[Rfam]
RNA sequence: AACUGCUAUAACGGCCAUAGCAGAAGUGCUCAUGUCAUGGCCCUAUCAGAUUCUAAUGAAACUUCAAAUUCUGUU
Numbered sequence: 001a002a003c004u005g006c007u008a009u010a011a012c013g014g015c016c017a018u019a020g021c022a023g024a025a026g027u028g029c030u031c032a033u034g035u036c037a038u039g040g041c042c043c044u045a046u047c048a049g050a051u052u053c054u055a056a057u058g059a060a061a062c063u064u065c066a067a068a069u070u071c072u073g074u075u
Stems, first nucleotide, its partner, number of pairs: 013042004019075007026038003048063002051060003
Source information: This 75-nucleotide RNA sequence from Alligator sinensis belongs to the Rfam family "Mammalian CPEB3 ribozyme". Its family is annotated with RNA nuclease activity in the Gene Ontology. The match comes from Rfam's covariance-model search (43 bits).